Pyrrolysine insertion sequence mttB: a 100-nucleotide RNA sequence from Rhodobacteraceae bacterium HTCC2083. Rfam links the family to the GO term pyrrolysine incorporation. The literature on the family includes a 2013 paper in BMC Bioinformatics by Theil Have et al., "Effects of using coding potential, sequence conservation and mRNA structure conservation for predicting pyrroly-sine containing genes". The match comes from Rfam's covariance-model search (50 bits).
RNA sequence: GCGUCAGAUUCCAAAAUGCCCGACAUGCAAGCGGGUUGGGAACAGAUGUGUUCCAACGUCAUGGCGGGCCUUUCUGGAUUGAACAUGGUUUAUGAGGCUG
Numbered sequence: 001g002c003g004u005c006a007g008a009u010u011c012c013a014a015a016a017u018g019c020c021c022g023a024c025a026u027g028c029a030a031g032c033g034g035g036u037u038g039g040g041a042a043c044a045g046a047u048g049u050g051u052u053c054c055a056a057c058g059u060c061a062u063g064g065c066g067g068g069c070c071u072u073u074c075u076g077g078a079u080u081g082a083a084c085a086u087g088g089u090u091u092a093u094g095a096g097g098c099u100g
Stems, first nucleotide, its partner, number of pairs: 003012001033062001035060001077098001079096002
Dot-bracket structure: ..(........)....................(.(........................).)..............(.((..............)).)..